Shown here is a 122-nucleotide sequence from Labeo rohita, a member of the family "Small nucleolar RNA SNORA26". From the family's description: The snoRNA HBI-6 belong to the H/ACA family of snoRNAs, guiding the pseudouridylation of position U4522 if the 28S rRNA. HBI-6 is the human orthologue of mouse MBI-6 snoRNA. A reference for the family is Huttenhofer et al. (2001), "RNomics: an experimental approach that identifies 201 candidates for novel, small, non-messenger RNAs in mouse", EMBO J. The base pairs follow the family's consensus structure, which was predicted with RNAalifold. Its family is annotated with nucleolus and RNA processing in the Gene Ontology. By type it is an H/ACA-box small nucleolar RNA.
[Rfam]
RNA sequence: UUGCACAUUCAAGUCAUAUUAUGUCUUGAAUGAUCGAUUGGGGAGGGGUAGAUGAAUUCUCUCUAAAACCUGAAGUAUUGGCUUCAUAUUCCUUGCUUCGGAUCCUGUCGGGAGAAACAAUA
Numbered sequence: 001u002u003g004c005a006c007a008u009u010c011a012a013g014u015c016a017u018a019u020u021a022u023g024u025c026u027u028g029a030a031u032g033a034u035c036g037a038u039u040g041g042g043g044a045g046g047g048g049u050a051g052a053u054g055a056a057u058u059c060u061c062u063c064u065a066a067a068a069c070c071u072g073a074a075g076u077a078u079u080g081g082c083u084u085c086a087u088a089u090u091c092c093u094u095g096c097u098u099c100g101g102a103u104c105c106u107g108u109c110g111g112g113a114g115a116a117a118c119a120a121u122a
Base pairs, nucleotide, nucleotide: 002050003049004048006046008044009043010042014037015036017033019030057116059114060113061112062111063110070101071100072099073098074097075096076095080092081091